The family of this 100-nucleotide RNA from Youngiibacter fragilis is "Purine riboswitch aptamer".
RNA sequence: AAUUAAAUAAGAAACUAUACUCAUAUAUGUUCUGGAUAAGGCAGGACGUCUCUACAAGGAACCAUUUGAAUUCCUGUCUAUGGGUGAUAGAAGCUGUAUC
Numbered sequence: 001a002a003u004u005a006a007a008u009a010a011g012a013a014a015c016u017a018u019a020c021u022c023a024u025a026u027a028u029g030u031u032c033u034g035g036a037u038a039a040g041g042c043a044g045g046a047c048g049u050c051u052c053u054a055c056a057a058g059g060a061a062c063c064a065u066u067u068g069a070a071u072u073c074c075u076g077u078c079u080a081u082g083g084g085u086g087a088u089a090g091a092a093g094c095u096g097u098a099u100c
Base pairs, nucleotide, nucleotide: 018086019085020084021083022082023081024080025079029047030046031045032044033043034042057075058074059073060072061071

The organism belongs to Youngiibacter fragilis, within Bacteria. A search with the family's covariance model found it, with a score of 53 bits. About the family: Riboswitches are metabolite binding domains within certain messenger RNAs that serve as precision sensors for their corresponding targets. The base pairs follow the family's consensus structure, which is taken from published work.